Rfam assigns this 140-nucleotide sequence from Allobosea sp. AAP35 to the family "Alphaproteobacterial sRNA BjrC1505". Rfam classes the family as a small RNA. Pairs were carried over by alignment from the consensus structure.
RNA sequence: UCGAAAGGCGUUAAGGGCUGAUUAACGAUUCCAAAGUAUGAAUCGAACCGUCCAGAUCGUCUGGAUGUGAGUGGCUCCUGCCCGCUCUGUUUGACGCCUCCCUGUUGACCUUCGAGCCGCCUCCGGGCGGCUCUUUUUUG
Numbered sequence: 001u002c003g004a005a006a007g008g009c010g011u012u013a014a015g016g017g018c019u020g021a022u023u024a025a026c027g028a029u030u031c032c033a034a035a036g037u038a039u040g041a042a043u044c045g046a047a048c049c050g051u052c053c054a055g056a057u058c059g060u061c062u063g064g065a066u067g068u069g070a071g072u073g074g075c076u077c078c079u080g081c082c083c084g085c086u087c088u089g090u091u092u093g094a095c096g097c098c099u100c101c102c103u104g105u106u107g108a109c110c111u112u113c114g115a116g117c118c119g120c121c122u123c124c125g126g127g128c129g130g131c132u133c134u135u136u137u138u139u140g
Base pairs, nucleotide, nucleotide: 001046002045003044004043009016018040023038024037050066051065052064053063069087070086071085072084073083074082093106094105095104096103114133115132116131117130118129119128120127121126